[Rfam]
RNA sequence: GUCUUAUCAAGAGAGGUUGAGGGACAUGGCCCUGCGACACCUCAGCAACCAUCAGAUGGCUUGUCUUCUGAAAAGGUGCUAAUUCCAGCAAGUUAGCUGCUAACUUGGUAGAUAAGAA
Number, nucleotide and partner (000 for none) at each position: 001g000002u117003c116004u115005u114006a113007u112008c111009a000010a000011g000012a000013g043014a042015g041016g040017u039018u000019g000020a000021g032022g031023g030024a000025c000026a000027u087028g086029g085030c023031c022032c021033u000034g000035c000036g000037a000038c000039a017040c016041c015042u014043c013044a080045g079046c078047a077048a000049c076050c075051a000052u071053c070054a069055g068056a067057u000058g000059g000060c000061u000062u000063g000064u000065c000066u000067u056068c055069u054070g053071a052072a000073a000074a000075g050076g049077u047078g046079c045080u044081a000082a000083u000084u110085c029086c028087a027088g000089c107090a106091a105092g104093u103094u102095a000096g000097c000098u000099g000100c000101u000102a094103a093104c092105u091106u090107g089108g000109u000110a084111g008112a007113u006114a005115a004116g003117a002118a000
The record is a 118-nucleotide RNA sequence from Bacillus sp. FJAT-18017, which matches "SAM riboswitch aptamer (S box leader)" in Rfam.
A search with the family's covariance model found it, with a score of 88 bits.